The record is a 208-nucleotide sequence from Paenibacillus cellulosilyticus, which matches "FMN riboswitch aptamer (RFN element)" in Rfam. About the family: The RFN element is a highly conserved domain that is found frequently in the 5'-untranslated regions of prokaryotic mRNAs that encode for flavin mononucleotide (FMN) biosynthesis and transport proteins. It scores 95 bits against the family's covariance model.

[Rfam]
RNA sequence: ACUUUCCUUCGGGGUGCGGUGAAAUUCCGAACCGGCGGUGAUCGUUUGGAAGCUGCUCUUUGCUACCGUUUGAACGGCGCAGGCUUCCGGCGUCAGUCCGUGACCCGAGGUCUCGUAAUUUCUUUCGCGUCAUGCGCGCAGAGGAGGCUUCGGUGGACCUGGUGCAAUUCCGGGACCGACAGUAUAGUCUGGAUGGGAGAAGGGGAAC
Numbered sequence: 001a002c003u004u005u006c007c008u009u010c011g012g013g014g015u016g017c018g019g020u021g022a023a024a025u026u027c028c029g030a031a032c033c034g035g036c037g038g039u040g041a042u043c044g045u046u047u048g049g050a051a052g053c054u055g056c057u058c059u060u061u062g063c064u065a066c067c068g069u070u071u072g073a074a075c076g077g078c079g080c081a082g083g084c085u086u087c088c089g090g091c092g093u094c095a096g097u098c099c100g101u102g103a104c105c106c107g108a109g110g111u112c113u114c115g116u117a118a119u120u121u122c123u124u125u126c127g128c129g130u131c132a133u134g135c136g137c138g139c140a141g142a143g144g145a146g147g148c149u150u151c152g153g154u155g156g157a158c159c160u161g162g163u164g165c166a167a168u169u170c171c172g173g174g175a176c177c178g179a180c181a182g183u184a185u186a187g188u189c190u191g192g193a194u195g196g197g198a199g200a201a202g203g204g205g206a207a208c
Base pairs, nucleotide, nucleotide: 003206004205005204006203007202008201009200010199017029018028019027031188032187033178034177035101036100037099038098105153106152107151108150109149110148111147112146113145114144158174159173160172161171162170180191181190182189